Rfam assigns this 86-nucleotide sequence from Petrocella atlantisensis to the family "c-di-GMP-I riboswitch aptamer". The base pairs follow the family's consensus structure, which is taken from published work. Lineage of the source: Bacteria > Bacillati > Clostridia > Vallitaleaceae > Petrocella.
RNA sequence: AUCUGAUAAAGGCAAACCCAAUGAAAAUUGGGGACGCAAAACACGGGCCUUAAGGUAGUAGUGACCAAGGUAGCCGGGUUACCAAA
Numbered sequence: 001a002u003c004u005g006a007u008a009a010a011g012g013c014a015a016a017c018c019c020a021a022u023g024a025a026a027a028u029u030g031g032g033g034a035c036g037c038a039a040a041a042c043a044c045g046g047g048c049c050u051u052a053a054g055g056u057a058g059u060a061g062u063g064a065c066c067a068a069g070g071u072a073g074c075c076g077g078g079u080u081a082c083c084a085a086a
Stems, first nucleotide, its partner, number of pairs: 012037002017032006040080003044076003047071003054065001056063002